The record is a 191-nucleotide RNA sequence from Paenibacillus catalpae, which matches "Lysine riboswitch aptamer" in Rfam.
About the family: Riboswitches are metabolite binding domains within certain messenger RNAs that serve as precision sensors for their corresponding targets.
The match comes from Rfam's covariance-model search (100 bits).
Lineage of the source: Bacteria > Bacillota > Caryophanales > Paenibacillaceae > Paenibacillus.
RNA sequence: AGAUGAGGUAGAGGUUGCGAUGUUAAUGAGUACAUCGGGGAAGGUCCAGUAAAGACCAUCGAUCCCGAUAGAAAGGUACCCUCGCCGAAGCCGUCCGGUAUACUGACCGUGACAGGCUGGGGCCGUAUCCGAACAGGAACGGAACUGUCAUAUUGCUACAAUCAUCGGCAAUAUGUUGUGCUAUCUUGAUA
Numbered sequence: 001a002g003a004u005g006a007g008g009u010a011g012a013g014g015u016u017g018c019g020a021u022g023u024u025a026a027u028g029a030g031u032a033c034a035u036c037g038g039g040g041a042a043g044g045u046c047c048a049g050u051a052a053a054g055a056c057c058a059u060c061g062a063u064c065c066c067g068a069u070a071g072a073a074a075g076g077u078a079c080c081c082u083c084g085c086c087g088a089a090g091c092c093g094u095c096c097g098g099u100a101u102a103c104u105g106a107c108c109g110u111g112a113c114a115g116g117c118u119g120g121g122g123c124c125g126u127a128u129c130c131g132a133a134c135a136g137g138a139a140c141g142g143a144a145c146u147g148u149c150a151u152a153u154u155g156c157u158a159c160a161a162u163c164a165u166c167g168g169c170a171a172u173a174u175g176u177u178g179u180g181c182u183a184u185c186u187u188g189a190u191a
Stems, first nucleotide, its partner, number of pairs: 006186006017085004022080001024078002034069007089118004093113003096109004119146002123142004128137002149175009
Dot-bracket structure: .....((((((.....((((.(.((........(((((((......................))))))).......)).).))))...(((((((((((......)))).))).))))((..((((.((......)).))))..))..(((((((((.........))))))))).....)))))).....